[Rfam]
RNA sequence: GAGAUAUUUAUAUCUCGAAGAAGAUUAAUGAUGAUUUUGUUCGGACGCUUCUUGCAUGGUUUAGAGUUUGAAUAUUUAUCUAAAUUUCAUGGACAAAACUUUGUAACAAACAAAUAUUCAAUAUGUUAUACAUUAAUCUAUGGAGACUUAAUUGUCUC
Numbered sequence: 001g002a003g004a005u006a007u008u009u010a011u012a013u014c015u016c017g018a019a020g021a022a023g024a025u026u027a028a029u030g031a032u033g034a035u036u037u038u039g040u041u042c043g044g045a046c047g048c049u050u051c052u053u054g055c056a057u058g059g060u061u062u063a064g065a066g067u068u069u070g071a072a073u074a075u076u077u078a079u080c081u082a083a084a085u086u087u088c089a090u091g092g093a094c095a096a097a098a099c100u101u102u103g104u105a106a107c108a109a110a111c112a113a114a115u116a117u118u119c120a121a122u123a124u125g126u127u128a129u130a131c132a133u134u135a136a137u138c139u140a141u142g143g144a145g146a147c148u149u150a151a152u153u154g155u156c157u158c
Base pairs, nucleotide, nucleotide: 001016002015003014004013005012006011023138024137025136026135027134028133029132030131032130033099035098036097037096038095039094040093041092042091047055048054058086059085060084061083062082063081064080103129104128105127106126107125
RT-2 RNA: a 158-nucleotide RNA. Rfam classes the family as a small RNA. Rfam's curators put it in the seed alignment.